[Rfam]
RNA sequence: GGAACGGGAGCUGGGCUUGGGACCAGGGCCAGCCCAAGCCCGAGCCCAAGUAGGCUCA
Numbered sequence: 001g002g003a004a005c006g007g008g009a010g011c012u013g014g015g016c017u018u019g020g021g022a023c024c025a026g027g028g029c030c031a032g033c034c035c036a037a038g039c040c041c042g043a044g045c046c047c048a049a050g051u052a053g054g055c056u057c058a
Base pairs, nucleotide, nucleotide: 012042013041014040015039016038017037018036019035020034021033026057027056028055029054030053
The record is a 58-nucleotide sequence from Loxodonta africana, which matches "Ma3 gene ribosomal frameshift signal" in Rfam. It scores 56 bits against the family's covariance model. Its family is annotated with translational frameshifting in the Gene Ontology. The family's RNA type in Rfam is frameshift element. The source organism's lineage runs through Eukaryota, Deuterostomia, Dipnotetrapodomorpha, Amniota and Loxodonta. The literature on the family includes a 2006 paper in J Biol Chem by Wills et al., "A functional -1 ribosomal frameshift signal in the human paraneoplastic Ma3 gene". Pairs were carried over by alignment from the consensus structure, which is taken from published work.